RNA sequence: ACACUAUGAUGGUUAAGUAAUUCAGCAGACGGAAUUGUGAAGAGAUUCACCAUUUGUCCAAUGUAUGU
Numbered sequence: 001a002c003a004c005u006a007u008g009a010u011g012g013u014u015a016a017g018u019a020a021u022u023c024a025g026c027a028g029a030c031g032g033a034a035u036u037g038u039g040a041a042g043a044g045a046u047u048c049a050c051c052a053u054u055u056g057u058c059c060a061a062u063g064u065a066u067g068u
Stems, first nucleotide, its partner, number of pairs: 001066001003064002006038005013028002043055004
This 68-nucleotide sequence from Carlito syrichta belongs to the Rfam family "Small nucleolar RNA SNORD77". The source organism's lineage runs through Eukaryota, Craniata, Tetrapoda, Eutheria and Carlito. Rfam links the family to the GO terms RNA processing and nucleolus. The family's RNA type in Rfam is C/D-box small nucleolar RNA. Rfam's curators write: U77 belongs to the C/D family of snoRNAs. It is predicted to guide 2'O-ribose methylation of large 28S rRNA subunit at position A1521. The C/D snoRNAs U44, U47, U74, U75, U76, U78, U79, U80 and U81 share the same host gene as U77 (non-coding).